[Rfam]
RNA: Glycine riboswitch aptamer
Nucleotides: 102
Stems, first nucleotide, its partner, number of pairs: 006097002009094005020033004035082003038078002042076001044074001049069007
Number, partner (000 for none) and nucleotide at each position: 001000g002000g003000a004000c005000a006097c007096a008000a009094c010093u011092c012091u013090g014000g015000a016000g017000a018000g019000u020033c021032c022031c023030a024000u025000u026000c027000g028000a029000u030023u031022g032021g033020g034000c035082g036081c037080c038078g039077a040000a041000g042076g043000u044074g045000u046000a047000a048000a049069g050068g051067g052066a053065u054064u055063u056000c057000a058000c059000c060000c061000g062000u063055a064054a065053a066052u067051c068050c069049c070000g071000a072000a073000u074044c075000u076042c077039u078038c079000a080037g081036g082035c083000a084000a085000a086000a087000g088000g089000a090013c091012a092011g093010g094009g095000c096007u097006g098000g099000c100000a101000g102000c